[Rfam]
RNA: Group II catalytic intron D1-D4-2
Nucleotides: 120
Base pairs, nucleotide, nucleotide: 001015002014003013004012005011016041017040018039019038020037021036023034024033025032026031046119048092049091050089051088052087053086054080055079057077058076059075062072063071064070098115099114100113101112102111
Number, partner (000 for none) and nucleotide at each position: 001015g002014a003013g004012g005011g006000u007000a008000g009000g010000c011005c012004c013003c014002u015001c016041g017040a018039a019038a020037u021036c022000g023034g024033u025032u026031u027000u028000c029000a030000g031026g032025a033024a034023c035000a036021g037020g038019u039018u040017u041016c042000a043000a044000a045000c046119c047000a048092c049091c050089g051088c052087a053086a054080g055079c056000u057077g058076c059075a060000u061000u062072g063071g064070u065000a066000a067000a068000g069000a070064g071063c072062c073000u074000u075059u076058g077057u078000g079055g080054u081000g082000a083000a084000c085000g086053u087052u088051g089050u090000c091049g092048g093000a094000a095000a096000a097000a098115g099114c100113a101112g102111g103000a104000a105000u106000u107000a108000g109000a110000a111102c112101c113100u114099g115098u116000c117000a118000g119046g120000u